[Rfam]
RNA sequence: ACCACUAAGCCAUCUCUCCAGCCCCGGAGACAAGCUUUUAAAUAAAAAAAACGGGCUGGAGAGAUGGCUUAGUGGU
Numbered sequence: 001a002c003c004a005c006u007a008a009g010c011c012a013u014c015u016c017u018c019c020a021g022c023c024c025c026g027g028a029g030a031c032a033a034g035c036u037u038u039u040a041a042a043u044a045a046a047a048a049a050a051a052c053g054g055g056c057u058g059g060a061g062a063g064a065u066g067g068c069u070u071a072g073u074g075g076u
Base pairs, nucleotide, nucleotide: 002075003074004073005072006071007070008069009068010067011066012065013064014063015062016061017060018059019058020057021056022055023054024053

The family of this 76-nucleotide RNA sequence from Jaculus jaculus is "mir-3473 microRNA precursor family". The family's consensus secondary structure was predicted with RNAalifold. The family has 5 seed sequences and 1,094 matches in Rfam 15.1.